[Rfam]
RNA sequence: GUAAGCGUACUGGGAAACUAGUACGUAGUGACAGAUGAUUUCUGUCCAAUACGCUACUUGAAUUGCUGGGAACUCGUAAAGCUAACUAUACUACAACAUAAAUUUGAAAUAAAAUUAAGUGUGAAUGUUAUUAAAACUAACAUGUGUUGCGAAAGCAGAAAAAAAUAGUUAGAUGACUCAAGGUUAAAUCCUAAAGGUUGUAAAACAAUCGACAAUCAGCAGCUAAGCUCCGAAUUCUUUCAUUAUAGUAGAAAUAGGAGAAAGUUCAACGACUAUUCCUCUUGAGGGAAGUACAUCAUAAGCGAUUGAUGAUGGAAGUGGGUAGCCCCUAACAUGUAAUGAUGAGGGAGAAGAUAUAGUCUGUGCUUUAUAGAAAUAUAAAG
Numbered sequence: 001g002u003a004a005g006c007g008u009a010c011u012g013g014g015a016a017a018c019u020a021g022u023a024c025g026u027a028g029u030g031a032c033a034g035a036u037g038a039u040u041u042c043u044g045u046c047c048a049a050u051a052c053g054c055u056a057c058u059u060g061a062a063u064u065g066c067u068g069g070g071a072a073c074u075c076g077u078a079a080a081g082c083u084a085a086c087u088a089u090a091c092u093a094c095a096a097c098a099u100a101a102a103u104u105u106g107a108a109a110u111a112a113a114a115u116u117a118a119g120u121g122u123g124a125a126u127g128u129u130a131u132u133a134a135a136a137c138u139a140a141c142a143u144g145u146g147u148u149g150c151g152a153a154a155g156c157a158g159a160a161a162a163a164a165a166u167a168g169u170u171a172g173a174u175g176a177c178u179c180a181a182g183g184u185u186a187a188a189u190c191c192u193a194a195a196g197g198u199u200g201u202a203a204a205a206c207a208a209u210c211g212a213c214a215a216u217c218a219g220c221a222g223c224u225a226a227g228c229u230c231c232g233a234a235u236u237c238u239u240u241c242a243u244u245a246u247a248g249u250a251g252a253a254a255u256a257g258g259a260g261a262a263a264g265u266u267c268a269a270c271g272a273c274u275a276u277u278c279c280u281c282u283u284g285a286g287g288g289a290a291g292u293a294c295a296u297c298a299u300a301a302g303c304g305a306u307u308g309a310u311g312a313u314g315g316a317a318g319u320g321g322g323u324a325g326c327c328c329c330u331a332a333c334a335u336g337u338a339a340u341g342a343u344g345a346g347g348g349a350g351a352a353g354a355u356a357u358a359g360u361c362u363g364u365g366c367u368u369u370a371u372a373g374a375a376a377u378a379u380a381a382a383g
Stems, first nucleotide, its partner, number of pairs: 011020003053326005059320002064221006074212003222265002229258002235253004269362001271361005327348004332343001368381005
Source information: Shown here is a 383-nucleotide RNA sequence from Candidatus Epulonipiscium fishelsonii, a member of the family "Group I catalytic intron". Group I catalytic introns are large self-splicing ribozymes. They catalyse their own excision from mRNA, tRNA and rRNA precursors in a wide range of organisms. The core secondary structure consists of 9 paired regions (P1-P9). These fold to essentially two domains - the P4-P6 domain (formed from the stacking of P5, P4, P6 and P6a helices) and the P3-P9 domain (formed from the P8, P3, P7 and P9 helices). The family's consensus secondary structure is taken from published work.